[Rfam]
RNA sequence: AAGAAAAAGCAGAAGCACCCGCUUCUCGCCUAGGUGGUAUUGAUCGCCGGGCUGACGAGAUGAAUGAUAAUCGACCACUAGGAUAAGGUCGUUGUUAUGAAGCGGGGUACUUUUGUGCCUCGCUUUUUUGCUUGAUC
Numbered sequence: 001a002a003g004a005a006a007a008a009g010c011a012g013a014a015g016c017a018c019c020c021g022c023u024u025c026u027c028g029c030c031u032a033g034g035u036g037g038u039a040u041u042g043a044u045c046g047c048c049g050g051g052c053u054g055a056c057g058a059g060a061u062g063a064a065u066g067a068u069a070a071u072c073g074a075c076c077a078c079u080a081g082g083a084u085a086a087g088g089u090c091g092u093u094g095u096u097a098u099g100a101a102g103c104g105g106g107g108u109a110c111u112u113u114u115g116u117g118c119c120u121c122g123c124u125u126u127u128u129u130g131c132u133u134g135a136u137c
Base pairs, nucleotide, nucleotide: 011026012025013024014023015022016021028052029051030050034047035046036045037044038043101124102123103122104121105120106119107118108117109116110115
RNA: Ribosomal protein L20 leader
Organism: Limosilactobacillus reuteri